[Rfam]
Nucleotides: 146
Stems, first nucleotide, its partner, number of pairs: 001023008035051004058128003085095001
Number, partner (000 for none) and nucleotide at each position: 001023u002022u003021c004020c005019g006018g007017u008016c009000g010000u011000c012000c013000a014000a015000a016008g017007a018006u019005c020004g021003g022002g023001g024000u025000u026000a027000c028000u029000c030000a031000a032000a033000g034000a035051g036050g037049c038048a039000c040000a041000c042000c043000u044000u045000c046000a047000u048038u049037g050036c051035c052000g053000g054000c055000a056000g057000u058128g059127c060126g061000g062000a063000c064000g065000g066000g067000u068000u069000c070000u071000c072000c073000a074000u075000c076000c077000a078000a079000g080000c081000c082000a083000a084000g085095g086000c087000a088000g089000a090000c091000a092000a093000a094000g095085c096000g097000a098000a099000c100000c101000g102000a103000u104000g105000c106000c107000g108000g109000g110000c111000a112000a113000g114000g115000c116000u117000a118000a119000g120000g121000u122000u123000c124000a125000u126060c127059g128058c129000c130000g131000c132000g133000a134000g135000a136000c137000g138000g139000c140000g141000u142000u143000u144000c145000a146000u